[Rfam]
RNA sequence: CUGUAAGGUUCUUCUACUAAGAACGCACACGUCCUGUGUGCAACGUAGAAGUCACCACAUCCUGUGGA
Numbered sequence: 001c002u003g004u005a006a007g008g009u010u011c012u013u014c015u016a017c018u019a020a021g022a023a024c025g026c027a028c029a030c031g032u033c034c035u036g037u038g039u040g041c042a043a044c045g046u047a048g049a050a051g052u053c054a055c056c057a058c059a060u061c062c063u064g065u066g067g068a
Stems, first nucleotide, its partner, number of pairs: 011051007026040005055067004
The family of this 68-nucleotide RNA sequence from Alteribacillus persepolensis is "Bacillaceae-1 RNA". The match comes from Rfam's covariance-model search (64 bits). The base pairs follow the family's consensus structure, which is taken from published work.